[Rfam]
RNA: Small nucleolar RNA R16
RNA sequence: GAAAGCAAAUGAUGCAAUACAAACAUCUUAUACUACACACCGAAGAUUUUUAUGUAGAAAACUAUCUCUCAAUUGUUUUCUGAUGCUUCC
Numbered sequence: 001g002a003a004a005g006c007a008a009a010u011g012a013u014g015c016a017a018u019a020c021a022a023a024c025a026u027c028u029u030a031u032a033c034u035a036c037a038c039a040c041c042g043a044a045g046a047u048u049u050u051u052a053u054g055u056a057g058a059a060a061a062c063u064a065u066c067u068c069u070c071a072a073u074u075g076u077u078u079u080c081u082g083a084u085g086c087u088u089c090c
Stems, first nucleotide, its partner, number of pairs: 003088005